Shown here is an 84-nucleotide sequence, a member of the family "S10-Clostridia ribosomal protein leader".
By type it is a cis-regulatory leader.
A reference for the family is Eckert and Weinberg (2020), "Discovery of 20 novel ribosomal leader candidates in bacteria and archaea", BMC Microbiol.
RNA sequence: UGAUAGCGUUGAUGCGUAAGGUUGCUACUGGAUUUCAGUAGGUUUUUACGCGGAGCGAAUGUCAAGUUAUAAAACUGGCGACAA
Numbered sequence: 001u002g003a004u005a006g007c008g009u010u011g012a013u014g015c016g017u018a019a020g021g022u023u024g025c026u027a028c029u030g031g032a033u034u035u036c037a038g039u040a041g042g043u044u045u046u047u048a049c050g051c052g053g054a055g056c057g058a059a060u061g062u063c064a065a066g067u068u069a070u071a072a073a074a075c076u077g078g079c080g081a082c083a084a
Stems, first nucleotide, its partner, number of pairs: 014051003018047004025041005060083004066079004